[Rfam]
RNA: U7 small nuclear RNA
Organism: Oncorhynchus kisutch
RNA sequence: AACAACCUGCUCUUUUAGUAUUUCUCCAGUAGGUUUCCUCAAGGAGGAAGCCUCC
Numbered sequence: 001a002a003c004a005a006c007c008u009g010c011u012c013u014u015u016u017a018g019u020a021u022u023u024c025u026c027c028a029g030u031a032g033g034u035u036u037c038c039u040c041a042a043g044g045a046g047g048a049a050g051c052c053u054c055c
Stems, first nucleotide, its partner, number of pairs: 032052008